[Rfam]
The record is a 61-nucleotide RNA sequence, which matches "L2-Alphaproteobacteria ribosomal protein leader" in Rfam. A reference for the family is Eckert and Weinberg (2020), "Discovery of 20 novel ribosomal leader candidates in bacteria and archaea", BMC Microbiol.

RNA sequence: GGGGACCUUCGGGGCCCUGACAACAGCCGGCUAACCGCCCGCAAAGCAACGGAAGACAGAA
Numbered sequence: 001g002g003g004g005a006c007c008u009u010c011g012g013g014g015c016c017c018u019g020a021c022a023a024c025a026g027c028c029g030g031c032u033a034a035c036c037g038c039c040c041g042c043a044a045a046g047c048a049a050c051g052g053a054a055g056a057c058a059g060a061a
Stems, first nucleotide, its partner, number of pairs: 001018004006014003026042002029039003
About this RNA:
Rfam classes the family as a cis-regulatory leader.